Small nucleolar RNA Z105: a 68-nucleotide RNA from Zizania palustris.
[Rfam]
RNA sequence: UUGGCAUGAUGAUGAAAACUUACGAAUUUCUGAUCUAUUUGAUGAGAAAUUCCUCCUACUCAUUCUGA
Numbered sequence: 001u002u003g004g005c006a007u008g009a010u011g012a013u014g015a016a017a018a019c020u021u022a023c024g025a026a027u028u029u030c031u032g033a034u035c036u037a038u039u040u041g042a043u044g045a046g047a048a049a050u051u052c053c054u055c056c057u058a059c060u061c062a063u064u065c066u067g068a
Stems, first nucleotide, its partner, number of pairs: 006063004027046001030041001
Rfam links the family to the GO terms RNA processing and nucleolus. It scores 65 bits against the family's covariance model. Rfam classes the family as a C/D-box small nucleolar RNA.